Record summary
MIR480 microRNA precursor family: a 140-nucleotide sequence from Populus tomentosa. Pairs were carried over by alignment from the consensus structure, which was predicted with WAR. Rfam links the family to the GO terms RISC complex and miRNA-mediated post-transcriptional gene silencing. It scores 123 bits against the family's covariance model.
RNA sequence: UAAUUUGUUUAUGAUAGAUCCUCGUUUAGUUAUGACAAACUCACACCUGAUUGCUCAAAGUUACUUGUUAUCACAAGUUCGAGUGCAUCAUUGAUAUAGAAAAAUAGAGGACAACUACUGAAUGAAUAAUAAGUUUUUGA
Dot-bracket structure: ......(((..(.((..((....((.(.(((..............................................................................))).)..))...))..)).)..)).).....
Numbered sequence: 001u002a003a004u005u006u007g008u009u010u011a012u013g014a015u016a017g018a019u020c021c022u023c024g025u026u027u028a029g030u031u032a033u034g035a036c037a038a039a040c041u042c043a044c045a046c047c048u049g050a051u052u053g054c055u056c057a058a059a060g061u062u063a064c065u066u067g068u069u070a071u072c073a074c075a076a077g078u079u080c081g082a083g084u085g086c087a088u089c090a091u092u093g094a095u096a097u098a099g100a101a102a103a104a105u106a107g108a109g110g111a112c113a114a115c116u117a118c119u120g121a122a123u124g125a126a127u128a129a130u131a132a133g134u135u136u137u138u139g140a
Stems, first nucleotide, its partner, number of pairs: 007135001008133002012129001014127002018123002024118002027114001029112003